[Rfam]
Nucleotides: 130
Base pairs, nucleotide, nucleotide: 003058004057005056006055010049011048019044020043021042022041025038026037027036063129064128069123070122071121072120073119083110084109085108086107087106089102090101093098
Number, partner (000 for none) and nucleotide at each position: 001000c002000u003058g004057c005056a006055u007000u008000c009000u010049u011048u012000a013000a014000a015000a016000c017000c018000c019044c020043c021042c022041g023000a024000g025038a026037g027036c028000u029000g030000c031000g032000u033000g034000u035000c036027g037026c038025u039000u040000c041022u042021g043020g044019g045000a046000c047000a048011a049010g050000u051000a052000c053000g054000a055006a056005u057004g058003c059000u060000a061000g062000a063129g064128a065000a066000a067000a068000c069123c070122a071121a072120g073119a074000a075000c076000u077000u078000u079000c080000c081000a082000a083110a084109g085108c086107u087106a088000c089102g090101u091000c092000u093098u094000c095000a096000c097000a098093g099000u100000g101090a102089c103000u104000a105000u106087u107086a108085g109084c110083u111000a112000u113000u114000u115000c116000a117000c118000c119073u120072c121071u122070u123069g124000a125000a126000c127000a128064u129063u130000g
The family of this 130-nucleotide sequence from Sinocyclocheilus anshuiensis is "Small nucleolar RNA SNORA14". Rfam's curators write: ACA14 is a member of the H/ACA class of snoRNA that guide the sites of modification of uridines to pseudouridines. Gene Ontology terms of the family: RNA processing and nucleolus. It is annotated as an H/ACA-box small nucleolar RNA.